Ribosomal protein L10 leader: a 163-nucleotide RNA sequence from Paenibacillus protaetiae. It is annotated as a cis-regulatory leader. On this family, see Zengel and Lindahl, Prog Nucleic Acid Res Mol Biol 1994: "Diverse mechanisms for regulating ribosomal protein synthesis in Escherichia coli". From the family's description: This family is a putative r-protein leader autoregulatory structure found in B. subtilis and other low-GC Gram-positive bacteria. It is located in the 5' untranslated regions of mRNAs encoding ribosomal proteins L10 and L12 (rplJ-rplL). A Rho-independent transcription terminator structure that is probably involved in regulation is included at the 3' end.

[Rfam]
RNA sequence: GAAUAUCGAAUAUGCAUACCGUAGACAGUAGGUGCCGCGAGGCUUAAUUUCCUACCGAGGUGUUAUGAUAAAAUGUUUGUGUACGGCAUUGGCUAAUAAGCCGAUGCCGGGAAACGGACGAUCAUGGCCUUCGCGAGUUUGCGAGGGCCUUUCUCAUGCACCC
Dot-bracket structure: ...........................(((((.(((....))).......))))).......................................................................(((((((((....)))))))))...............